[Rfam]
RNA sequence: GGUGCGUGUCCUUAAUAGAAAAUGCAGUGUUUAUCCAACACAAGAAGCAUGAGGUUGAAAAGCGGACGCAAUUUCCGACACGCGCC
Numbered sequence: 001g002g003u004g005c006g007u008g009u010c011c012u013u014a015a016u017a018g019a020a021a022a023u024g025c026a027g028u029g030u031u032u033a034u035c036c037a038a039c040a041c042a043a044g045a046a047g048c049a050u051g052a053g054g055u056u057g058a059a060a061a062g063c064g065g066a067c068g069c070a071a072u073u074u075c076c077g078a079c080a081c082g083c084g085c086c
Base pairs, nucleotide, nucleotide: 001086002085003084004083005082006081007080008079009078010077022050023049024048025047054063055062056061064076065075066074
RNA: RAGATH-21 RNA